RNA: U1 spliceosomal RNA
Organism: Rhinopomastus cyanomelas
RNA sequence: UUACUUACCUGGCAGGGGAGACACCAUGAUCAGGCAGGUGGUUUUCCCAGGGCAAGGCUCAUCCUUUGCUCUCCGGGUGUGCUGACCCCUGCGAUUUCCCCAAAUGUGGGCAACUCAACUGCAUAUUUUGUGGUAGUGGGGGACUGCAUUCAUGCUCUCCCUAA
Numbered sequence: 001u002u003a004c005u006u007a008c009c010u011g012g013c014a015g016g017g018g019a020g021a022c023a024c025c026a027u028g029a030u031c032a033g034g035c036a037g038g039u040g041g042u043u044u045u046c047c048c049a050g051g052g053c054a055a056g057g058c059u060c061a062u063c064c065u066u067u068g069c070u071c072u073c074c075g076g077g078u079g080u081g082c083u084g085a086c087c088c089c090u091g092c093g094a095u096u097u098c099c100c101c102a103a104a105u106g107u108g109g110g111c112a113a114c115u116c117a118a119c120u121g122c123a124u125a126u127u128u129u130g131u132g133g134u135a136g137u138g139g140g141g142g143a144c145u146g147c148a149u150u151c152a153u154g155c156u157c158u159c160c161c162u163a164a
Stems, first nucleotide, its partner, number of pairs: 012122004016048006023042005049090004056083003060079005093116002095113001097110001099109002137163005143158001146155003